This 350-nucleotide RNA from Sphingobium algorifonticola belongs to the Rfam family "Alphaproteobacteria transfer-messenger RNA". Pairs were carried over by alignment from the consensus structure, which is taken from published work. From the family's description: Bacterial tmRNA, also known as 10Sa RNA or SsrA, is named for its dual tRNA and mRNA-like properties.
RNA sequence: UCACUUUUCAUUCAGCCAUUUGCGCCUAUAUGAGUUCUGUCGGGUUCGCCCGACUAUGGCGAUAAAUUGUGCCGUGUAAUAGACGCAGCGGACGCGGGGGCAGUACCCGCCGGCUCCACCAUAUGCCCCGGCGCAGCAUUGCGGCGAGGCACCUGACGGGGCCGAACCAGGAUCGACGUGUGUUCAAAGACGGUAUUUUCGCCCGGCCCGAGUAAGCCGUAAAACUGUUCAAAACCCAUAAGUGCCAACGAUAACGAAGCACUCGCUCUCGCAGCGUAAUUAAGGCCUAACGGCCGAGAUUACUCUAAAAGAACGCGGUUGGACCCACCGGGCAACAGAAGGGUUACAGC
Numbered sequence: 001u002c003a004c005u006u007u008u009c010a011u012u013c014a015g016c017c018a019u020u021u022g023c024g025c026c027u028a029u030a031u032g033a034g035u036u037c038u039g040u041c042g043g044g045u046u047c048g049c050c051c052g053a054c055u056a057u058g059g060c061g062a063u064a065a066a067u068u069g070u071g072c073c074g075u076g077u078a079a080u081a082g083a084c085g086c087a088g089c090g091g092a093c094g095c096g097g098g099g100g101c102a103g104u105a106c107c108c109g110c111c112g113g114c115u116c117c118a119c120c121a122u123a124u125g126c127c128c129c130g131g132c133g134c135a136g137c138a139u140u141g142c143g144g145c146g147a148g149g150c151a152c153c154u155g156a157c158g159g160g161g162c163c164g165a166a167c168c169a170g171g172a173u174c175g176a177c178g179u180g181u182g183u184u185c186a187a188a189g190a191c192g193g194u195a196u197u198u199u200c201g202c203c204c205g206g207c208c209c210g211a212g213u214a215a216g217c218c219g220u221a222a223a224a225c226u227g228u229u230c231a232a233a234a235c236c237c238a239u240a241a242g243u244g245c246c247a248a249c250g251a252u253a254a255c256g257a258a259g260c261a262c263u264c265g266c267u268c269u270c271g272c273a274g275c276g277u278a279a280u281u282a283a284g285g286c287c288u289a290a291c292g293g294c295c296g297a298g299a300u301u302a303c304u305c306u307a308a309a310a311g312a313a314c315g316c317g318g319u320u321g322g323a324c325c326c327a328c329c330g331g332g333c334a335a336c337a338g339a340a341g342g343g344u345u346a347c348a349g350c
Stems, first nucleotide, its partner, number of pairs: 039054005058203005069196007084182003088179003094110005111164007204219004210230002215226001316330004321347001323345001325343002